[Rfam]
RNA: TPP riboswitch aptamer (THI element)
RNA sequence: UUGAACUGCUGGGGGCGCGGAUAUCGCUGAGAUAAGGUUUUGCCUUAGUCCCUUUGAACCUGAUGCGGGUCAUGCCGCCGAAGGGAAGCACUCUGCACAUGGG
Number, nucleotide and partner (000 for none) at each position: 001u000002u000003g000004a000005a000006c000007u090008g089009c088010u087011g053012g052013g051014g050015g000016c000017g027018c026019g025020g024021a000022u000023a000024u020025c019026g018027c017028u000029g000030a000031g000032a000033u000034a046035a045036g044037g043038u042039u000040u000041u000042g038043c037044c036045u035046u034047a000048g000049u000050c014051c013052c012053u011054u000055u000056g000057a000058a000059c084060c083061u082062g000063a000064u000065g078066c077067g076068g075069g000070u000071c000072a000073u000074g000075c068076c067077g066078c065079c000080g000081a000082a061083g060084g059085g000086a000087a010088g009089c008090a007091c000092u000093c000094u000095g000096c000097a000098c000099a000100u000101g000102g000103g000